[Rfam]
Glycine riboswitch aptamer: a 120-nucleotide RNA from Novosphingobium sp. Gsoil 351.

RNA sequence: UAGCGACACUCUGGAAAGAGCCCAUGCCGAAACCGGCGGGGCCGCCGAAGGGGUAACCCCGCCUGGUUUUCGACGACUGGCGGGGGAAAGCUCUCAGGUUUCCGUGACAGAGGGGGCGCC
Numbered sequence: 001u002a003g004c005g006a007c008a009c010u011c012u013g014g015a016a017a018g019a020g021c022c023c024a025u026g027c028c029g030a031a032a033c034c035g036g037c038g039g040g041g042c043c044g045c046c047g048a049a050g051g052g053g054u055a056a057c058c059c060c061g062c063c064u065g066g067u068u069u070u071c072g073a074c075g076a077c078u079g080g081c082g083g084g085g086g087a088a089a090g091c092u093c094u095c096a097g098g099u100u101u102c103c104g105u106g107a108c109a110g111a112g113g114g115g116g117c118g119c120c
Base pairs, nucleotide, nucleotide: 007114009112010111011110012109013108020042021041022040023039044099045098046097047095048094051093052092053091057086058085059084060083